Small nucleolar RNA Z13/snr52: a 110-nucleotide sequence from Hermanssonia centrifuga. The family's consensus secondary structure was predicted with PFOLD.
RNA sequence: UCGUUCUUAACGGAUGAAACCAAUACGGAUGUAAAAGUCCAAGGACUUACUGUCCGAGAGCGCAUAAACCUCAUGUGGAUCUUUCCGUUGCCUUCCUUCUGACCUUCUCC
Numbered sequence: 001u002c003g004u005u006c007u008u009a010a011c012g013g014a015u016g017a018a019a020c021c022a023a024u025a026c027g028g029a030u031g032u033a034a035a036a037g038u039c040c041a042a043g044g045a046c047u048u049a050c051u052g053u054c055c056g057a058g059a060g061c062g063c064a065u066a067a068a069c070c071u072c073a074u075g076u077g078g079a080u081c082u083u084u085c086c087g088u089u090g091c092c093u094u095c096c097u098u099c100u101g102a103c104c105u106u107c108u109c110c
Stems, first nucleotide, its partner, number of pairs: 003109001026087004

By type it is a C/D-box small nucleolar RNA. Gene Ontology terms of the family: RNA processing and nucleolus. The organism belongs to Hermanssonia, within Eukaryota. Rfam 15.1 lists 1,203 matches to the family in 866 species.